mir-46/mir-47/mir-281 microRNA precursor family: an 84-nucleotide RNA from Halicephalobus sp. NKZ332. Pairs were carried over by alignment from the consensus structure, which was predicted with RNAalifold. NCBI's taxonomy places the organism under Eukaryota, Opisthokonta, Bilateria, Rhabditida, Halicephalobus. It scores 66 bits against the family's covariance model. Its family is annotated with miRNA-mediated post-transcriptional gene silencing and RISC complex in the Gene Ontology.

RNA sequence: AUCGCUGUACUGUUAAGAGAGCCAUCUGUUGACAGUUAGUUUAGAAGUUACUGUCAUGGAGUUGCUCUCUUAACUUUUGCAGCG
Numbered sequence: 001a002u003c004g005c006u007g008u009a010c011u012g013u014u015a016a017g018a019g020a021g022c023c024a025u026c027u028g029u030u031g032a033c034a035g036u037u038a039g040u041u042u043a044g045a046a047g048u049u050a051c052u053g054u055c056a057u058g059g060a061g062u063u064g065c066u067c068u069c070u071u072a073a074c075u076u077u078u079g080c081a082g083c084g
Stems, first nucleotide, its partner, number of pairs: 014072005020066003025060004031055003035051002
Dot-bracket structure: .............(((((.(((..((((..(((.((.............)).))).))))...))).)))))............